[Rfam]
RNA sequence: ACUGAGGAAUGAUGAUAGUAAAAGGCCGAAUUGCAGUGUCCCCAUGAACAGUUUGCUCUCUGUGGGGGUACACAGUGACAAAAUCUCUUGAAGCGAAACACCAGUCUGACCUCAGU
Numbered sequence: 001a002c003u004g005a006g007g008a009a010u011g012a013u014g015a016u017a018g019u020a021a022a023a024g025g026c027c028g029a030a031u032u033g034c035a036g037u038g039u040c041c042c043c044a045u046g047a048a049c050a051g052u053u054u055g056c057u058c059u060c061u062g063u064g065g066g067g068g069u070a071c072a073c074a075g076u077g078a079c080a081a082a083a084u085c086u087c088u089u090g091a092a093g094c095g096a097a098a099c100a101c102c103a104g105u106c107u108g109a110c111c112u113c114a115g116u
Base pairs, nucleotide, nucleotide: 001116002115003114004113005112006111007110014106015105016104025034026033036101037100038099042095043093045091047089048088051073052072054070055069056068057067058066075086077084
This 116-nucleotide RNA from Heterocephalus glaber belongs to the Rfam family "Small nucleolar RNA SNORD89". Its family is annotated with nucleolus and RNA processing in the Gene Ontology. A search with the family's covariance model found it, with a score of 109 bits. Lineage of the source: Eukaryota > Euteleostomi > Sarcopterygii > Theria > Heterocephalus. Rfam 15.1 lists 642 matches to the family in 573 species. Rfam's curators write: snoRNA HBII-289 belongs to the family of C/D snoRNAs. The family's RNA type in Rfam is C/D-box small nucleolar RNA. A reference for the family is Huttenhofer et al. (2001), "RNomics: an experimental approach that identifies 201 candidates for novel, small, non-messenger RNAs in mouse", EMBO J.